[Rfam]
RNA sequence: GCGGAAGUGGUGGAAUUGGCAGACACGCUGGUUUUAGGUACCAGUGCUCCGGCGUGCGGGUUCGAGUCCCGCCUUCCGCA
Numbered sequence: 001g002c003g004g005a006a007g008u009g010g011u012g013g014a015a016u017u018g019g020c021a022g023a024c025a026c027g028c029u030g031g032u033u034u035u036a037g038g039u040a041c042c043a044g045u046g047c048u049c050c051g052g053c054g055u056g057c058g059g060g061u062u063c064g065a066g067u068c069c070c071g072c073c074u075u076c077c078g079c080a
Base pairs, nucleotide, nucleotide: 001079002078003077004076005075006074007073010026011025012024028044029043030042031041032040056072057071058070059069060068
Notes:
This 80-nucleotide sequence from Branchiibius sp. NY16-3462-2 belongs to the Rfam family "tRNA". Rfam links the family to the GO term triplet codon-amino acid adaptor activity. The family's RNA type in Rfam is transfer RNA. The family's consensus secondary structure is taken from published work. From the family's description: Transfer RNA (tRNA) molecules are approximately 80 nucleotides in length. Lineage of the source: Bacteria > Bacillati > Actinomycetota > Micrococcales > Branchiibius.